[Rfam]
RNA sequence: AUGCAGACAGUUAUCCCUUUCUAGCCUGAUACUUGUGGCUCUAGAGGGAGUCAGUCUGCUAAAUCAAGCAGGGGAAUCUCAGCCUUUAUCCAGCACAGCUGAGUGCUGAUGCAGACUUCAGGCUUCCCAUACACCA
Numbered sequence: 001a002u003g004c005a006g007a008c009a010g011u012u013a014u015c016c017c018u019u020u021c022u023a024g025c026c027u028g029a030u031a032c033u034u035g036u037g038g039c040u041c042u043a044g045a046g047g048g049a050g051u052c053a054g055u056c057u058g059c060u061a062a063a064u065c066a067a068g069c070a071g072g073g074g075a076a077u078c079u080c081a082g083c084c085u086u087u088a089u090c091c092a093g094c095a096c097a098g099c100u101g102a103g104u105g106c107u108g109a110u111g112c113a114g115a116c117u118u119c120a121g122g123c124u125u126c127c128c129a130u131a132c133a134c135c136a
Stems, first nucleotide, its partner, number of pairs: 003059006020045005025038002071127004077122003089115002094111002096108002101106001
The family of this 136-nucleotide RNA from Crocodylus porosus is "Small nucleolar RNA SNORA56". Clan: SNORA56 clan. ACA56 is a member of the H/ACA class of snoRNA that guide the sites of modification of uridines to pseudouridines. It is annotated as an H/ACA-box small nucleolar RNA. Its family is annotated with RNA processing and nucleolus in the Gene Ontology. The organism belongs to Crocodylus, within Eukaryota.